[Rfam]
Description:
wcaG RNA: a 93-nucleotide sequence from Shandvirus sb64. The family's consensus secondary structure is taken from published work. Taxonomically the source falls in Shandvirus sb64 (Viruses, Duplodnaviria, Caudoviricetes, Pantevenvirales).
Nucleotides: 093
Base pairs, nucleotide, nucleotide: 009029010028011027012026013025014024015023039051040050041049042048043047053068054067055066056065060078061077062076063075
Number, partner (000 for none) and nucleotide at each position: 001000c002000g003000g004000a005000g006000u007000u008000u009029c010028c011027u012026g013025c014024u015023u016000c017000u018000c019000u020000c021000a022000a023015a024014a025013g026012c027011a028010g029009g030000u031000g032000g033000u034000g035000c036000g037000g038000a039051u040050g041049g042048g043047g044000u045000u046000a047043c048042c049041c050040c051039g052000c053068c054067u055066g056065g057000u058000u059000u060078c061077u062076g063075g064000u065056c066055c067054a068053g069000u070000c071000a072000a073000a074000a075063c076062c077061a078060g079000c080000a081000c082000a083000c084000g085000c086000a087000c088000a089000u090000g091000u092000g093000g